[Rfam]
A member of the RNA family "RT-2 RNA", 155 nucleotides long.
Pairs were carried over by alignment from the consensus structure, which is taken from published work.
RNA sequence: ACCUUCCUGUAAGGGUAAAUGUGAUUCUUUGAUGAAAGCGACCGGACGCUGCUUGCAUGGACAGAUGAUACGUGCUCUCUCUGUUUUCAUGGUCGCAACUAUGUGGCUGCAACACGUUAUAGCCAUACGAAGGAUUUUUAUGACAAGUGAAGAAC
Numbered sequence: 001a002c003c004u005u006c007c008u009g010u011a012a013g014g015g016u017a018a019a020u021g022u023g024a025u026u027c028u029u030u031g032a033u034g035a036a037a038g039c040g041a042c043c044g045g046a047c048g049c050u051g052c053u054u055g056c057a058u059g060g061a062c063a064g065a066u067g068a069u070a071c072g073u074g075c076u077c078u079c080u081c082u083g084u085u086u087u088c089a090u091g092g093u094c095g096c097a098a099c100u101a102u103g104u105g106g107c108u109g110c111a112a113c114a115c116g117u118u119a120u121a122g123c124c125a126u127a128c129g130a131a132g133g134a135u136u137u138u139u140a141u142g143a144c145a146a147g148u149g150a151a152g153a154a155c
Stems, first nucleotide, its partner, number of pairs: 001016004024135008033127001034099001039095005048056002059086007103126005111120001
Dot-bracket structure: ((((........)))).......((((((((.((....(((((....((.....))..(((((((..............)))))))....)))))...)...(((((...(........).))))))))))))))....................